[Rfam]
RNA sequence: UGGGUGCAAGCCGAAAAACCCGACAAAAAAAAGAGUAGGCA
Numbered sequence: 001u002g003g004g005u006g007c008a009a010g011c012c013g014a015a016a017a018a019c020c021c022g023a024c025a026a027a028a029a030a031a032a033g034a035g036u037a038g039g040c041a
Stems, first nucleotide, its partner, number of pairs: 002021004010040003
Rfam assigns this 41-nucleotide sequence to the family "DUF805b RNA".
It is one of the family's seed sequences.
The family's RNA type in Rfam is cis-regulatory element.
The family's consensus secondary structure is taken from published work.